[Rfam]
RNA: c-di-GMP-I riboswitch aptamer
Organism: Sedimentibacter hydroxybenzoicus
RNA sequence: AAUAUUUUUAGGCAAACUUCUCCAAAGAGAAGGACGCAAAGCAUGAAGUCUAAGGAAUGUUAAUUCUAUGAUGGUUCGGCCGCUUAU
Numbered sequence: 001a002a003u004a005u006u007u008u009u010a011g012g013c014a015a016a017c018u019u020c021u022c023c024a025a026a027g028a029g030a031a032g033g034a035c036g037c038a039a040a041g042c043a044u045g046a047a048g049u050c051u052a053a054g055g056a057a058u059g060u061u062a063a064u065u066c067u068a069u070g071a072u073g074g075u076u077c078g079g080c081c082g083c084u085u086a087u
Stems, first nucleotide, its partner, number of pairs: 012037002017032006041080002045077003048072003055066004
Dot-bracket structure: ...........((...((((((....))))))...))...((..((((((....((((....))))...)))..))).)).......